[Rfam]
RNA: MIR6274 microRNA precursor family
Organism: Prunus yedoensis
RNA sequence: GGAUAUCAUUGUUUUGCUAUCCCUGGCCAAUAACAUAAUGACAUGUGAAAAAGUUAUCCGACGUGUCAUUAUGUUAUUGAUCAUGAAUAGCAAAAAAUGUUAUCC
Numbered sequence: 001g002g003a004u005a006u007c008a009u010u011g012u013u014u015u016g017c018u019a020u021c022c023c024u025g026g027c028c029a030a031u032a033a034c035a036u037a038a039u040g041a042c043a044u045g046u047g048a049a050a051a052a053g054u055u056a057u058c059c060g061a062c063g064u065g066u067c068a069u070u071a072u073g074u075u076a077u078u079g080a081u082c083a084u085g086a087a088u089a090g091c092a093a094a095a096a097a098u099g100u101u102a103u104c105c
Stems, first nucleotide, its partner, number of pairs: 002104004012095009022085001024083003028079019050057001